[Rfam]
RNA sequence: AUAUAAGAGAAAAACUACUUUUUAGAUUCAUUGAAAAUUUAAUGUAUUUGGUCUUCAUUAUAGACCAAAUACAUUAGAUUCUCAAUGAAUCUAAAAAGUAGUUUUCCUCUUAUAU
Numbered sequence: 001a002u003a004u005a006a007g008a009g010a011a012a013a014a015c016u017a018c019u020u021u022u023u024a025g026a027u028u029c030a031u032u033g034a035a036a037a038u039u040u041a042a043u044g045u046a047u048u049u050g051g052u053c054u055u056c057a058u059u060a061u062a063g064a065c066c067a068a069a070u071a072c073a074u075u076a077g078a079u080u081c082u083c084a085a086u087g088a089a090u091c092u093a094a095a096a097a098g099u100a101g102u103u104u105u106c107c108u109c110u111u112a113u114a115u
Stems, first nucleotide, its partner, number of pairs: 002114006009107001011105003015101011027089008036080009049067004
Dot-bracket structure: .((((((.(.(((.(((((((((((.((((((((.(((((((((....((((...........))))....))))))))).)))))))).))))))))))).))).).)))))).
RNA: MIR2593 microRNA precursor family
Organism: Trifolium pratense